[Rfam]
RNA: MIR403 microRNA precursor family
Organism: Artemisia annua
RNA sequence: CCAUCUUUCGAGUUUGUGCGUGAAUCCAACGAAACUCAAUAUGUGUUCUGACAAGAUAUGUUUGUUAGAUUCACGCACAAACUCGUGAGAUGUCU
Dot-bracket structure: .((.(((...((((((((((((((((.(((.((...........................)).))).))))))))))))))))...))).))...
Numbered sequence: 001c002c003a004u005c006u007u008u009c010g011a012g013u014u015u016g017u018g019c020g021u022g023a024a025u026c027c028a029a030c031g032a033a034a035c036u037c038a039a040u041a042u043g044u045g046u047u048c049u050g051a052c053a054a055g056a057u058a059u060g061u062u063u064g065u066u067a068g069a070u071u072c073a074c075g076c077a078c079a080a081a082c083u084c085g086u087g088a089g090a091u092g093u094c095u
Stems, first nucleotide, its partner, number of pairs: 002092002005089003011083016028066003032062002